[Rfam]
RNA sequence: UACAGGUGCCUUGGGACCUGUCAACUGUGGCACUCCCCCUUCCUGGUCAUAGUAAAACAUGUUCCUGUGCAUGGCAAACAUGUCACCACUUCAUUGGUAUCUGAUUCUUACUGGCAUUGAUAACAUUC
Numbered sequence: 001u002a003c004a005g006g007u008g009c010c011u012u013g014g015g016a017c018c019u020g021u022c023a024a025c026u027g028u029g030g031c032a033c034u035c036c037c038c039c040u041u042c043c044u045g046g047u048c049a050u051a052g053u054a055a056a057a058c059a060u061g062u063u064c065c066u067g068u069g070c071a072u073g074g075c076a077a078a079c080a081u082g083u084c085a086c087c088a089c090u091u092c093a094u095u096g097g098u099a100u101c102u103g104a105u106u107c108u109u110a111c112u113g114g115c116a117u118u119g120a121u122a123a124c125a126u127u128c
Base pairs, nucleotide, nucleotide: 002053003052004050006048013039014038015037019032020031021030022029066125067124068123070119071118073115075113076112079103080102082101085098086097087096088095
Rfam assigns this 128-nucleotide RNA sequence from Mesocricetus auratus to the family "Small nucleolar RNA SNORA24". About the family: ACA24 is a member of the H/ACA class of snoRNA that guide the sites of modification of uridines to pseudouridines. Its family is annotated with nucleolus and RNA processing in the Gene Ontology. Pairs were carried over by alignment from the consensus structure, which was predicted with RNAfold. Taxonomically the source falls in Mesocricetus (Eukaryota, Vertebrata, Euteleostomi, Euarchontoglires). A search with the family's covariance model found it, with a score of 62 bits.